Shown here is a 74-nucleotide RNA sequence from Alligator mississippiensis, a member of the family "Mammalian CPEB3 ribozyme".

[Rfam]
RNA sequence: CAAGGGUUCCAGGCCGUAACAGAAGUGCUCACAAUGCAGCCAUGUCAGAUGCCAACAAAUCUGUGAAUUCUGAU
Numbered sequence: 001c002a003a004g005g006g007u008u009c010c011a012g013g014c015c016g017u018a019a020c021a022g023a024a025g026u027g028c029u030c031a032c033a034a035u036g037c038a039g040c041c042a043u044g045u046c047a048g049a050u051g052c053c054a055a056c057a058a059a060u061c062u063g064u065g066a067a068u069u070c071u072g073a074u
Base pairs, nucleotide, nucleotide: 012041013040014039018074020072021071022070023069024068025037026036027035046063047062048061049060050059

A search with the family's covariance model found it, with a score of 36 bits.